Shown here is a 114-nucleotide RNA from Corynebacterium freneyi, a member of the family "L31-Corynebacteriaceae ribosomal protein leader". The sequence is in the family's curated seed alignment. On this family, see Eckert and Weinberg, BMC Microbiol 2020: "Discovery of 20 novel ribosomal leader candidates in bacteria and archaea".
RNA sequence: ACUCGGGCACGAUCCGGGCCCCGGCGUGACUCACGCUCCACGGCGAAUGAUACGUCGUAAAGCAGAAGUCCGCCCGCGCCGCCCGGAAGCGACCCGAAGUUCAAUCCUGAGGGA
Numbered sequence: 001a002c003u004c005g006g007g008c009a010c011g012a013u014c015c016g017g018g019c020c021c022c023g024g025c026g027u028g029a030c031u032c033a034c035g036c037u038c039c040a041c042g043g044c045g046a047a048u049g050a051u052a053c054g055u056c057g058u059a060a061a062g063c064a065g066a067a068g069u070c071c072g073c074c075c076g077c078g079c080c081g082c083c084c085g086g087a088a089g090c091g092a093c094c095c096g097a098a099g100u101u102c103a104a105u106c107c108u109g110a111g112g113g114a
Base pairs, nucleotide, nucleotide: 001100002099003098004096005095006094007093013087014086015085016084017083018082019081023074024073025072026071